[Rfam]
The record is a 133-nucleotide RNA from Oceanobacillus zhaokaii, which matches "Bacillaceae-1 RNA" in Rfam. The base pairs follow the family's consensus structure, which is taken from published work. The source organism's lineage runs through Bacteria, Bacillati, Bacillota, Bacilli and Oceanobacillus.
RNA sequence: AUUAGGGGAAGUCCGGUUAAGAGCGCGACGUCCUGGGACUGCUGUUACUCCCCCAUCGAAAACCUUUGGGACUGCGGUUACUCGCCCCAUCGAAAACCUUUGUCGCAACACCGAACUGACCUACAUCCUUUGC
Numbered sequence: 001a002u003u004a005g006g007g008g009a010a011g012u013c014c015g016g017u018u019a020a021g022a023g024c025g026c027g028a029c030g031u032c033c034u035g036g037g038a039c040u041g042c043u044g045u046u047a048c049u050c051c052c053c054c055a056u057c058g059a060a061a062a063c064c065u066u067u068g069g070g071a072c073u074g075c076g077g078u079u080a081c082u083c084g085c086c087c088c089a090u091c092g093a094a095a096a097c098c099u100u101u102g103u104c105g106c107a108a109c110a111c112c113g114a115a116c117u118g119a120c121c122u123a124c125a126u127c128c129u130u131u132g133c
Stems, first nucleotide, its partner, number of pairs: 011116002014113004025106005124132001
Dot-bracket structure: ..........((.((((.......(((((........................................................................)))))...)))).)).......(.......).